[Rfam]
RNA sequence: CCGAGUUAGGGGUACAAGUCCUGCAGAAUUGCGUUCCUCUGGACCUAAGCAUAGUGCCGAAAGGCCCGCGACGACACUCGGCGUUAGAGGGGAGAGUGCCAGACGUGGUGUCUCCUCUGACG
Numbered sequence: 001c002c003g004a005g006u007u008a009g010g011g012g013u014a015c016a017a018g019u020c021c022u023g024c025a026g027a028a029u030u031g032c033g034u035u036c037c038u039c040u041g042g043a044c045c046u047a048a049g050c051a052u053a054g055u056g057c058c059g060a061a062a063g064g065c066c067c068g069c070g071a072c073g074a075c076a077c078u079c080g081g082c083g084u085u086a087g088a089g090g091g092g093a094g095a096g097u098g099c100c101a102g103a104c105g106u107g108g109u110g111u112c113u114c115c116u117c118u119g120a121c122g
Stems, first nucleotide, its partner, number of pairs: 001081006007074001009072001010046004015041002022033004049069002057064002083121011099108003
The family of this 122-nucleotide RNA sequence is "Flavobacterium-1 RNA". The family's RNA type in Rfam is small RNA. The family's consensus secondary structure is taken from published work. It is one of the family's seed sequences.